[Rfam]
RNA sequence: AAAUCCUUAAACAACGAAAGCCCUACCUCUCUUUCGUCCUCACGGCUCCGAAGCCGAUCCAGUGUGAAUAAGCUCAUCUCAAUACUU
Numbered sequence: 001a002a003a004u005c006c007u008u009a010a011a012c013a014a015c016g017a018a019a020g021c022c023c024u025a026c027c028u029c030u031c032u033u034u035c036g037u038c039c040u041c042a043c044g045g046c047u048c049c050g051a052a053g054c055c056g057a058u059c060c061a062g063u064g065u066g067a068a069u070a071a072g073c074u075c076a077u078c079u080c081a082a083u084a085c086u087u
Base pairs, nucleotide, nucleotide: 034067035066036065039062040061043056044055045054046053047052
RNA: BsrC
Organism: Litchfieldia stipae